[Rfam]
The family of this 135-nucleotide RNA sequence from Phascolarctobacterium sp. CAG:266 is "Ribosomal protein L10 leader". Pairs were carried over by alignment from the consensus structure, which was predicted with CMfinder. It scores 48 bits against the family's covariance model. Lineage of the source: Bacteria > Bacillota > Negativicutes > Acidaminococcaceae > Phascolarctobacterium. Gene Ontology term of the family: regulation of gene expression.

RNA sequence: AAUCAGAAGAUAAUCGGGCCAUAGACAGCAGGUGCGGCACAGCCGCGUAAGCAUAGCGCCAGCCGAGGUUGGAGACGUUGAAGAUAGACCUUCGCGACCUCCGGCUGCGGCCGAGAGGUCUUUUUGAUUUAAUAA
Numbered sequence: 001a002a003u004c005a006g007a008a009g010a011u012a013a014u015c016g017g018g019c020c021a022u023a024g025a026c027a028g029c030a031g032g033u034g035c036g037g038c039a040c041a042g043c044c045g046c047g048u049a050a051g052c053a054u055a056g057c058g059c060c061a062g063c064c065g066a067g068g069u070u071g072g073a074g075a076c077g078u079u080g081a082a083g084a085u086a087g088a089c090c091u092u093c094g095c096g097a098c099c100u101c102c103g104g105c106u107g108c109g110g111c112c113g114a115g116a117g118g119u120c121u122u123u124u125u126g127a128u129u130u131a132a133u134a135a
Stems, first nucleotide, its partner, number of pairs: 028063002031060003034046003096120006102113004